RNA sequence: AACUGCCAUAAUGGCCAUAGCAGAAACACUUACAUUGUGGCCCUGUCAGAGUCUAAUGAAUCUGUGAAUUCUGUU
Numbered sequence: 001a002a003c004u005g006c007c008a009u010a011a012u013g014g015c016c017a018u019a020g021c022a023g024a025a026a027c028a029c030u031u032a033c034a035u036u037g038u039g040g041c042c043c044u045g046u047c048a049g050a051g052u053c054u055a056a057u058g059a060a061u062c063u064g065u066g067a068a069u070u071c072u073g074u075u
Base pairs, nucleotide, nucleotide: 013042014041015040016039019075020074021073022072023071024070025069026038027037028036047064048063049062050061052059053058
The record is a 75-nucleotide RNA sequence from Alligator sinensis, which matches "Mammalian CPEB3 ribozyme" in Rfam. Lineage of the source: Eukaryota > Euteleostomi > Amniota > Alligatoridae > Alligator.